Rfam assigns this 99-nucleotide sequence to the family "COG3943 RNA". Pairs were carried over by alignment from the consensus structure, which is taken from published work.
[Rfam]
RNA sequence: UACGCUCCGCACAGAAUCUCGAUUCUGAACAUGAGGCCCGUCACAGGGAUGACGUAACACCAGCGGCUACAGGACUUAGUCGAUAGCCGCACCCGGUGU
Numbered sequence: 001u002a003c004g005c006u007c008c009g010c011a012c013a014g015a016a017u018c019u020c021g022a023u024u025c026u027g028a029a030c031a032u033g034a035g036g037c038c039c040g041u042c043a044c045a046g047g048g049a050u051g052a053c054g055u056a057a058c059a060c061c062a063g064c065g066g067c068u069a070c071a072g073g074a075c076u077u078a079g080u081c082g083a084u085a086g087c088c089g090c091a092c093c094c095g096g097u098g099u
Stems, first nucleotide, its partner, number of pairs: 012027005039054005057099005063090007073081003